Rfam assigns this 91-nucleotide RNA from Perca flavescens to the family "Small nucleolar SNORD12/SNORD106".
Pairs were carried over by alignment from the consensus structure, which was predicted with RNAalifold.
The match comes from Rfam's covariance-model search (59 bits).
Rfam links the family to the GO terms RNA processing and nucleolus.
Taxonomically the source falls in Perca (Eukaryota, Euteleosteomorpha, Acanthomorphata, Perciformes).

RNA sequence: GGUGUGGUUAAUGAUGCAUACUUUUUUCCCCGUCUUAUCGACUAUGGUGAAAACCAGCUGAAAUUAAGCCAAUUAUGUCUGAAACCACAUC
Numbered sequence: 001g002g003u004g005u006g007g008u009u010a011a012u013g014a015u016g017c018a019u020a021c022u023u024u025u026u027u028c029c030c031c032g033u034c035u036u037a038u039c040g041a042c043u044a045u046g047g048u049g050a051a052a053a054c055c056a057g058c059u060g061a062a063a064u065u066a067a068g069c070c071a072a073u074u075a076u077g078u079c080u081g082a083a084a085c086c087a088c089a090u091c
Stems, first nucleotide, its partner, number of pairs: 001091009